[Rfam]
RNA: Small nucleolar RNA SNORA27
Organism: Castor canadensis
RNA sequence: GUAUCCCCUUUCACUUUGCCAAUUGGACUUAUGUCUUUGUUGGUCAUUCAAGUGGGGCAAAGGAAAUCUCCAUUUAAAACUCAAGCAAAAACUGAGUGUUUGUCCUGCAACCUGUCAUGGAAAAUAAAU
Numbered sequence: 001g002u003a004u005c006c007c008c009u010u011u012c013a014c015u016u017u018g019c020c021a022a023u024u025g026g027a028c029u030u031a032u033g034u035c036u037u038u039g040u041u042g043g044u045c046a047u048u049c050a051a052g053u054g055g056g057g058c059a060a061a062g063g064a065a066a067u068c069u070c071c072a073u074u075u076a077a078a079a080c081u082c083a084a085g086c087a088a089a090a091a092c093u094g095a096g097u098g099u100u101u102g103u104c105c106u107g108c109a110a111c112c113u114g115u116c117a118u119g120g121a122a123a124a125u126a127a128a129u
Base pairs, nucleotide, nucleotide: 032059033058034057035056036055040051041050042049043048069122071120074117082107085103086102087101088100091099092098